[Rfam]
RNA sequence: UCGUAACAAGAACCGGUGCUAAAGAGUCCUGCCUAACGGCUACUGACAGUUGUUGUCGGGGCAGAGACCCUUUAGCACCGGUUCGUGCUACGAA
Numbered sequence: 001u002c003g004u005a006a007c008a009a010g011a012a013c014c015g016g017u018g019c020u021a022a023a024g025a026g027u028c029c030u031g032c033c034u035a036a037c038g039g040c041u042a043c044u045g046a047c048a049g050u051u052g053u054u055g056u057c058g059g060g061g062c063a064g065a066g067a068c069c070c071u072u073u074a075g076c077a078c079c080g081g082u083u084c085g086u087g088c089u090a091c092g093a094a
Base pairs, nucleotide, nucleotide: 003091004090005089007087008086010084011083012082013081014080015079016078017077018076019075020074021073022072023071024070026068027067030064032060033059034058036056037055043049044048

Rfam assigns this 94-nucleotide sequence from Sorghum bicolor to the family "MIR5387 microRNA precursor family". Lineage of the source: Eukaryota > Viridiplantae > Poales > Andropogoneae > Sorghum. Its family is annotated with miRNA-mediated post-transcriptional gene silencing and RISC complex in the Gene Ontology.